The family of this 134-nucleotide RNA sequence from Staphylococcus haemolyticus is "RNA Staph. aureus A". It is annotated as a small RNA. The family's consensus secondary structure is taken from published work. The organism belongs to Staphylococcus haemolyticus, within Bacteria. From the family's description: Represses the translation of the transcriptional regulator MgrA by binding to its mRNA, enhances biofilm formation and decreases bacterial virulence. Rfam links the family to the GO terms sRNA-mediated gene silencing and mRNA binding.
[Rfam]
RNA sequence: AGUUAGCAAUUUAUGAAUAAUAUUGAGUAGCGACAAUAUUUUCAUAGUUGUUAAUGUUCAGAGUAGUAAUUAAGUUCUCCCAAAACAUAUACUACACUAUAAUAGCCUGAGGCAUAGUAAGUGCCUCAGGUUAU
Numbered sequence: 001a002g003u004u005a006g007c008a009a010u011u012u013a014u015g016a017a018u019a020a021u022a023u024u025g026a027g028u029a030g031c032g033a034c035a036a037u038a039u040u041u042u043c044a045u046a047g048u049u050g051u052u053a054a055u056g057u058u059c060a061g062a063g064u065a066g067u068a069a070u071u072a073a074g075u076u077c078u079c080c081c082a083a084a085a086c087a088u089a090u091a092c093u094a095c096a097c098u099a100u101a102a103u104a105g106c107c108u109g110a111g112g113c114a115u116a117g118u119a120a121g122u123g124c125c126u127c128a129g130g131u132u133a134u
Base pairs, nucleotide, nucleotide: 002055003054004053005052006051007050008049014044015043016042017041019040020039021038022037023036024035025034066095067094068093070091076089078087103133104132105131106130107129108128109127110126111125112124113123114122115121